[Rfam]
RNA sequence: UCCUCGCUCAAAGAAUCGCAUUCAAAGCUUACACACAAGAUAUCUUUCAAUAUCUUUUUCCUUUAUGGAAAACCAGCUUUGGGAGAAAGUCCCCGGACACCCUGACCAUUUCUUCGGAAUGGACCAGGCAAUGCGGAAACGCGCCGCCAUAGAAGCAAUUCGAUAGCGGCUUAUACGCCCUAUUCCCUCCCAGUGCCUCAGUCUACGCCCGACGCCGUCAGGUGGUAACAAUGGUGGUGUAGCUGGGUGUUGGAGAGGGGUUUAUUGGGUUGCCAUUCGUCGUGGUUGGAUAGUUAUGCGAUUGCUCUUCUCAUUUCUGAGGGAGUAACUCAAUGGGGCUCAUUCUUGAGGCGAGG
Numbered sequence: 001u002c003c004u005c006g007c008u009c010a011a012a013g014a015a016u017c018g019c020a021u022u023c024a025a026a027g028c029u030u031a032c033a034c035a036c037a038a039g040a041u042a043u044c045u046u047u048c049a050a051u052a053u054c055u056u057u058u059u060c061c062u063u064u065a066u067g068g069a070a071a072a073c074c075a076g077c078u079u080u081g082g083g084a085g086a087a088a089g090u091c092c093c094c095g096g097a098c099a100c101c102c103u104g105a106c107c108a109u110u111u112c113u114u115c116g117g118a119a120u121g122g123a124c125c126a127g128g129c130a131a132u133g134c135g136g137a138a139a140c141g142c143g144c145c146g147c148c149a150u151a152g153a154a155g156c157a158a159u160u161c162g163a164u165a166g167c168g169g170c171u172u173a174u175a176c177g178c179c180c181u182a183u184u185c186c187c188u189c190c191c192a193g194u195g196c197c198u199c200a201g202u203c204u205a206c207g208c209c210c211g212a213c214g215c216c217g218u219c220a221g222g223u224g225g226u227a228a229c230a231a232u233g234g235u236g237g238u239g240u241a242g243c244u245g246g247g248u249g250u251u252g253g254a255g256a257g258g259g260g261u262u263u264a265u266u267g268g269g270u271u272g273c274c275a276u277u278c279g280u281c282g283u284g285g286u287u288g289g290a291u292a293g294u295u296a297u298g299c300g301a302u303u304g305c306u307c308u309u310c311u312c313a314u315u316u317c318u319g320a321g322g323g324a325g326u327a328a329c330u331c332a333a334u335g336g337g338g339c340u341c342a343u344u345c346u347u348g349a350g351g352c353g354a355g356g
Stems, first nucleotide, its partner, number of pairs: 002356006008349004014303006022083001023081006038056002043050001088340002091338004149164002152161003166274001173270002176267002182263001185260001186258004241251003305325005
About this RNA: A member of the RNA family "RNase MRP" from Aspergillus chevalieri, 356 nucleotides long. The source organism's lineage runs through Eukaryota, Opisthokonta, Pezizomycotina, Aspergillaceae and Aspergillus subgen. Aspergillus. A reference for the family is Piccinelli et al. (2005), "Identification and analysis of ribonuclease P and MRP RNA in a broad range of eukaryotes", Nucleic Acids Res.